[Rfam]
RNA sequence: AGAUUUGCUCGUAGGGCGCGAGCAAGUAAGGAAUAAAAGAAAGUCCCACUGAGA
Number, nucleotide and partner (000 for none) at each position: 001a000002g000003a000004u000005u000006u024007g023008c022009u021010c020011g019012u000013a000014g047015g046016g045017c000018g000019c011020g010021a009022g008023c007024a006025a000026g000027u000028a000029a000030g000031g000032a000033a000034u000035a000036a000037a000038a000039g000040a000041a000042a000043g000044u000045c016046c015047c014048a000049c000050u000051g000052a000053g000054a000
Rfam assigns this 54-nucleotide RNA to the family "6A RNA". It is annotated as a small RNA. The sequence is in the family's curated seed alignment. The base pairs follow the family's consensus structure, which is taken from published work.